[Rfam]
RNA sequence: AUCACUUGUAUGUAUCUUUGUUGAACUGAUGAACAAAGACUUAAAAACAGGUGCAAAAAUAUACCUUUUUUUGCAACCCAGAGCUCAUUGUGGAGUUGAGUUCUGAUGCAUACAAGAAGGGAUAUA
Numbered sequence: 001a002u003c004a005c006u007u008g009u010a011u012g013u014a015u016c017u018u019u020g021u022u023g024a025a026c027u028g029a030u031g032a033a034c035a036a037a038g039a040c041u042u043a044a045a046a047a048c049a050g051g052u053g054c055a056a057a058a059a060u061a062u063a064c065c066u067u068u069u070u071u072u073g074c075a076a077c078c079c080a081g082a083g084c085u086c087a088u089u090g091u092g093g094a095g096u097u098g099a100g101u102u103c104u105g106a107u108g109c110a111u112a113c114a115a116g117a118a119g120g121g122a123u124a125u126a
Base pairs, nucleotide, nucleotide: 003053004052005051006050007049008048009047011045015039016038017037018036019035020034021033026031063123065121066120067119069117070116071115072114073113079105080104081103082102083101084100085099086098087097